[Rfam]
RNA sequence: UCGCCCAAGGCGACAAGGUUGCCAAGAGAGGCGGCCUUCUCAAGGAAACUUGAGAUAGCCUGGGUGUUUUA
Numbered sequence: 001u002c003g004c005c006c007a008a009g010g011c012g013a014c015a016a017g018g019u020u021g022c023c024a025a026g027a028g029a030g031g032c033g034g035c036c037u038u039c040u041c042a043a044g045g046a047a048a049c050u051u052g053a054g055a056u057a058g059c060c061u062g063g064g065u066g067u068u069u070u071a
Stems, first nucleotide, its partner, number of pairs: 002066006009060003017036007038055005

A member of the RNA family "DUF3800-IX RNA", 71 nucleotides long. Rfam's curators write: Actinobacteria, Firmicutes (1 example), Nitrospirae, Proteobacteria, Verrucomicrobia (1 example).